[Rfam]
RNA sequence: AAGCCUAAUGGCCUAGAUCGGAGGGGUCGUGGUAAUAGCACCGUUGGUGGUUCUUCGGAUGCUUCUCAGUCCCAAGGCGCACAAGCAUGGGGGGGUUACCAUAACGAUCUAGGAGACAGCUU
Numbered sequence: 001a002a003g004c005c006u007a008a009u010g011g012c013c014u015a016g017a018u019c020g021g022a023g024g025g026g027u028c029g030u031g032g033u034a035a036u037a038g039c040a041c042c043g044u045u046g047g048u049g050g051u052u053c054u055u056c057g058g059a060u061g062c063u064u065c066u067c068a069g070u071c072c073c074a075a076g077g078c079g080c081a082c083a084a085g086c087a088u089g090g091g092g093g094g095g096u097u098a099c100c101a102u103a104a105c106g107a108u109c110u111a112g113g114a115g116a117c118a119g120c121u122u
Stems, first nucleotide, its partner, number of pairs: 001122004012113009029102008038062003041058003046053002070093004077086002
Rfam assigns this 122-nucleotide RNA from Aureusvirus cucumis to the family "Aureusvirus cap-independent translation element".
By type it is a cis-regulatory element.